[Rfam]
RNA sequence: UGUGGUUACAAACUCCGAGUCCGGCAGGCCUAAGUCCCCGCAGCGAUAGGGUGGCCGGACCGCUCGGGCCGCCAGAUCGGCGGCGCGUAAGGGUGCCGAUAGAAAUGUCGUCGCCUCCCGCUUUUCGGAAAGGUGUUUAUGCUGGAAUUAC
Numbered sequence: 001u002g003u004g005g006u007u008a009c010a011a012a013c014u015c016c017g018a019g020u021c022c023g024g025c026a027g028g029c030c031u032a033a034g035u036c037c038c039c040g041c042a043g044c045g046a047u048a049g050g051g052u053g054g055c056c057g058g059a060c061c062g063c064u065c066g067g068g069c070c071g072c073c074a075g076a077u078c079g080g081c082g083g084c085g086c087g088u089a090a091g092g093g094u095g096c097c098g099a100u101a102g103a104a105a106u107g108u109c110g111u112c113g114c115c116u117c118c119c120g121c122u123u124u125u126c127g128g129a130a131a132g133g134u135g136u137u138u139a140u141g142c143u144g145g146a147a148u149u150a151c
Base pairs, nucleotide, nucleotide: 003145011137012136013135015133016132019060020059021058022057023056024055025054028052029051030050034047035046036045062088063087065085066084091116092115093114094113095112097110098109099108100107101106117128118127
RNA: Molybdenum/Tungsten riboswitch aptamer (Moco RNA motif)